[Rfam]
RNA: Bacterial RNase P class A
Organism: Teichococcus coralli
RNA sequence: UCAGGUGGCCGGGCGGCCGCUGGUCAUGGGCAGGCCCCAUGGCUGGAGGAAAGUCCGGGCUCCACGGGAAUACGGUGCCGGCCAACGGCCGGCGGGGGCGACCCCAGGGAAAGUGCCACAGAAAUCAAACCGCCGGGCCGGUUCGCCGCCCCGGCAAGGGUGAAACGGUGCGGUAAGAGCGCACCGCGCCCCCGGCGACGGGGGCGGCAUGGUAAACCCCACCGGGAGCAAGGCCGAAUAGGGGUGGCCGGCGGGGAUUCCGCGAGGAAUCCGUCCGCGGGGGGCUUUCCCGCCCCGUCACCCGGGUUGGCCGCGUGAGGCAUGCCGCAAGGCAUGUCCCAGAGGAAUGGUCGCCGCACGCCGCCGGUUCGCCGGAGGCGUGGACAGAACCCGGCUUACAGGCCACCUGACGCC
Number, nucleotide and partner (000 for none) at each position: 001u410002c409003a408004g407005g406006u405007g404008g403009c402010c401011g399012g355013g354014c353015g352016g351017c350018c349019g000020c046021u045022g044023g043024u042025c041026a040027u039028g038029g000030g000031c000032a000033g000034g000035c000036c000037c000038c028039a027040u026041g025042g024043c023044u022045g021046g020047a000048g000049g000050a000051a397052a396053g395054u000055c394056c393057g392058g391059g390060c228061u227062c226063c225064a000065c000066g000067g000068g290069a000070a288071u000072a000073c224074g223075g222076u221077g220078c092079c091080g090081g089082c088083c000084a000085a000086c000087g000088g082089c081090c080091g079092g078093c107094g105095g104096g103097g102098g000099c000100g000101a000102c097103c096104c095105c094106a000107g093108g219109g218110a000111a000112a000113g217114u216115g213116c212117c211118a000119c000120a000121g000122a000123a000124a000125u000126c000127a000128a000129a000130c159131c158132g155133c154134c153135g152136g151137g150138c000139c148140g147141g000142u000143u000144c000145g000146c000147c140148g139149c000150c137151c136152c135153g134154g133155c132156a000157a000158g131159g130160g000161u000162g000163a000164a000165a000166c000167g185168g184169u183170g182171c181172g180173g000174u000175a000176a000177g000178a000179g000180c172181g171182c170183a169184c168185c167186g208187c206188g205189c204190c203191c202192c201193c200194g199195g000196c000197g000198a000199c194200g193201g192202g191203g190204g189205c188206g187207g000208c186209a000210u000211g117212g116213u115214a000215a000216a114217c113218c109219c108220c077221a076222c075223c074224g073225g063226g062227a061228g060229c000230a000231a000232g312233g311234c310235c309236g000237a000238a000239u000240a000241g000242g303243g302244g301245u300246g299247g298248c000249c000250g000251g000252c000253g000254g000255g000256g000257a000258u000259u000260c000261c000262g000263c000264g000265a000266g000267g000268a000269a000270u000271c000272c000273g000274u000275c000276c000277g000278c000279g000280g000281g296282g295283g294284g293285c292286u000287u000288u070289c000290c068291c000292g285293c284294c283295c282296c281297g000298u247299c246300a245301c244302c243303c242304g000305g000306g000307u000308u000309g235310g234311c233312c232313g000314c000315g000316u000317g000318a000319g338320g337321c336322a335323u334324g333325c332326c331327g000328c000329a000330a000331g326332g325333c324334a323335u322336g321337u320338c319339c000340c000341a000342g000343a000344g000345g000346a000347a000348u000349g018350g017351u016352c015353g014354c013355c012356g000357c000358a000359c000360g000361c000362c000363g000364c000365c000366g000367g000368u000369u000370c000371g000372c000373c000374g000375g000376a000377g000378g000379c000380g000381u000382g000383g000384a000385c000386a000387g000388a000389a000390c059391c058392c057393g056394g055395c053396u052397u051398a000399c011400a000401g010402g009403c008404c007405a006406c005407c004408u003409g002410a001411c000412g000413c000414c000